[Rfam]
RNA sequence: ACACAUCUCCAGUUUAUGCGUGAAUCAGACGCCUUCGGAGCCGCCUAGUUUUUAAUCAGGUCAUCCAAUGGUGUUAGAUUCACGCACAAACUCGUGAUUUGUCU
Number, nucleotide and partner (000 for none) at each position: 001a102002c101003a100004c000005a098006u097007c096008u000009c000010c000011a092012g091013u090014u089015u088016a000017u086018g085019c084020g083021u082022g081023a080024a079025u078026c077027a000028g075029a074030c073031g000032c071033c070034u000035u000036c000037g000038g000039a000040g000041c000042c000043g061044c000045c059046u000047a000048g000049u000050u000051u000052u000053u000054a000055a000056u000057c000058a000059g045060g000061u043062c000063a000064u000065c000066c000067a000068a000069u000070g033071g032072u000073g030074u029075u028076a000077g026078a025079u024080u023081c022082a021083c020084g019085c018086a017087c000088a015089a014090a013091c012092u011093c000094g000095u000096g007097a006098u005099u000100u003101g002102u001103c000104u000
This 104-nucleotide RNA from Durio zibethinus belongs to the Rfam family "MIR403 microRNA precursor family". The family's consensus secondary structure was predicted with WAR. For this family Rfam cites "High throughput approaches reveal splicing of primary microRNA transcripts and tissue specific expression of mature microRNAs in Vitis vinifera" (Mica et al., BMC Genomics, 2009).